[Rfam]
Nucleotides: 082
Base pairs, nucleotide, nucleotide: 001082002081003080005077006076007075008074014069015068016067017066018065019064020063021062022061026059027058028057029056030055031054033052034051035050
Number, partner (000 for none) and nucleotide at each position: 001082a002081g003080g004000u005077c006076a007075c008074a009000u010000u011000u012000a013000a014069c015068a016067u017066u018065c019064a020063u021062u022061g023000c024000u025000g026059u027058c028057g029056g030055u031054g032000g033052g034051u035050u036000g037000a038000g039000u040000u041000a042000a043000g044000u045000g046000a047000a048000u049000a050035a051034a052033c053000u054031c055030g056029c057028u058027g059026a060000a061022c062021g063020a064019u065018g066017a067016a068015u069014g070000c071000a072000a073000c074008u075007g076006u077005g078000u079000c080003c081002c082001u
Shown here is an 82-nucleotide RNA from Aquarana catesbeiana, a member of the family "mir-181 microRNA precursor family".
Rfam links the family to the GO terms RISC complex and miRNA-mediated post-transcriptional gene silencing.
A reference for the family is Lagos-Quintana et al. (2003), "New microRNAs from mouse and human", RNA.
The family's consensus secondary structure was predicted with PFOLD.